Rfam assigns this 133-nucleotide RNA sequence from Phyllostomus discolor to the family "U11 spliceosomal RNA".
RNA sequence: AAAACAACUUCUCUCAUGAAUAGCAUACAUAGGGCAGUUUGAUUACUCUCUGUGCAGUGUAAACAUCAAGAGAUUUAGAGAACAUAAUUUUUUAGUAUCUGGGAAGCUGGUGAUUGUUGGUCCUGGCAUCUGA
Numbered sequence: 001a002a003a004a005c006a007a008c009u010u011c012u013c014u015c016a017u018g019a020a021u022a023g024c025a026u027a028c029a030u031a032g033g034g035c036a037g038u039u040u041g042a043u044u045a046c047u048c049u050c051u052g053u054g055c056a057g058u059g060u061a062a063a064c065a066u067c068a069a070g071a072g073a074u075u076u077a078g079a080g081a082a083c084a085u086a087a088u089u090u091u092u093u094a095g096u097a098u099c100u101g102g103g104a105a106g107c108u109g110g111u112g113a114u115u116g117u118u119g120g121u122c123c124u125g126g127c128a129u130c131u132g133a
Base pairs, nucleotide, nucleotide: 009082010081011080012079014023016021026054027053028052029051031049032048033047034046036044037043055078057076059074060073101131102130103129106127107126108125109124110123112122113121114120115119
Dot-bracket structure: ........((((.(.(....).)..((((.((((.((.....)).)))).))))(.(.((............)).).)))))..................(((..(((((.((((...))))))))).)))..
Rfam classes the family as a spliceosomal small nuclear RNA. Its Rfam clan is "U1 clan". Its family is annotated with pre-mRNA 5'-splice site binding, mRNA 5'-splice site recognition and U11 snRNP in the Gene Ontology. The organism belongs to Phyllostomus, within Eukaryota.